Rfam assigns this 119-nucleotide sequence from Plasmodium gonderi to the family "small nucleolar RNA snoR15". A reference for the family is Chakrabarti et al. (2007), "Structural RNAs of known and unknown function identified in malaria parasites by comparative genomics and RNA analysis", RNA. Rfam links the family to the GO terms nucleolus and RNA processing. The match comes from Rfam's covariance-model search (94 bits). The family's RNA type in Rfam is C/D-box small nucleolar RNA.

RNA sequence: UUUACAUGAUGAAAAAAGAAAACAGCGAUGCUUUAACUUAAGUUUCUUUUAGGUAUCUAAAAGGUUAAAAAGCAGAGCGAAAUGAGCGUCAAAAGCGAGUAGUUUUCAAUCUGAUAAAA
Numbered sequence: 001u002u003u004a005c006a007u008g009a010u011g012a013a014a015a016a017a018g019a020a021a022a023c024a025g026c027g028a029u030g031c032u033u034u035a036a037c038u039u040a041a042g043u044u045u046c047u048u049u050u051a052g053g054u055a056u057c058u059a060a061a062a063g064g065u066u067a068a069a070a071a072g073c074a075g076a077g078c079g080a081a082a083u084g085a086g087c088g089u090c091a092a093a094a095g096c097g098a099g100u101a102g103u104u105u106u107c108a109a110u111c112u113g114a115u116a117a118a119a
Stems, first nucleotide, its partner, number of pairs: 004115001011111001025087002029079004038069002042065001045064008